[Rfam]
RNA sequence: UGCCUUUGUGUUAACAGUUCACUUUUGGGAACUAGUGAAUGUGGUGUCAAAAAAAGGCAUAAAUAAAUGCUUUGCAGUUUUCUUCUUACCCUUAAAUUUAGUAUCUUUGCUGUAGGACCUGCAUUAGCAACAGUU
Numbered sequence: 001u002g003c004c005u006u007u008g009u010g011u012u013a014a015c016a017g018u019u020c021a022c023u024u025u026u027g028g029g030a031a032c033u034a035g036u037g038a039a040u041g042u043g044g045u046g047u048c049a050a051a052a053a054a055a056g057g058c059a060u061a062a063a064u065a066a067a068u069g070c071u072u073u074g075c076a077g078u079u080u081u082c083u084u085c086u087u088a089c090c091c092u093u094a095a096a097u098u099u100a101g102u103a104u105c106u107u108u109g110c111u112g113u114a115g116g117a118c119c120u121g122c123a124u125u126a127g128c129a130a131c132a133g134u135u
Base pairs, nucleotide, nucleotide: 002058003057004056005055006054007053009049010048012046013045015043017040018039019038020037021036022035023034069128070127071126073123074122075121076120077119084117085116086115087114088113089112091109095104

The family of this 135-nucleotide RNA from Castor canadensis is "Small nucleolar RNA SNORA13". Its Rfam clan is "SNORA13 clan". From the family's description: ACA13 is a member of the H/ACA class of snoRNA that guide the sites of modification of uridines to pseudouridines. A search with the family's covariance model found it, with a score of 104 bits.